[Rfam]
RNA sequence: GUCGGGAGGGCGACGAAUAAAAUACCCUUCGGGGGAAUAAGUCCGCAGCUCUUGUAUGCUGUUCUCAACCUCCUGACAUCAGUCU
Number, nucleotide and partner (000 for none) at each position: 001g077002u076003c075004g074005g073006g072007a071008g070009g069010g000011c000012g043013a042014c041015g000016a038017a000018u000019a000020a000021a000022a000023u000024a000025c034026c033027c032028u000029u000030c000031g000032g027033g026034g025035g000036a000037a000038u016039a000040a000041g014042u013043c012044c000045g062046c061047a060048g059049c058050u000051c000052u000053u000054g000055u000056a000057u000058g049059c048060u047061g046062u045063u000064c000065u000066c000067a000068a000069c009070c008071u007072c006073c005074u004075g003076a002077c001078a000079u000080c000081a000082g000083u000084c000085u000

sRNA-Xcc1: an 85-nucleotide RNA from Oceanospirillum sediminis.
The match comes from Rfam's covariance-model search (62 bits).
For this family Rfam cites "sRNA-Xcc1, an integron-encoded transposon- and plasmid-transferred trans-acting sRNA, is under the positive control of the key virulence regulators HrpG and HrpX of Xanthomonas campestris pathovar campestris" (Chen et al., RNA Biol, 2011).
Rfam classes the family as a small RNA.
The family has 74 seed sequences and 421 matches in Rfam 15.1.
The base pairs follow the family's consensus structure, which was predicted with RNAalifold.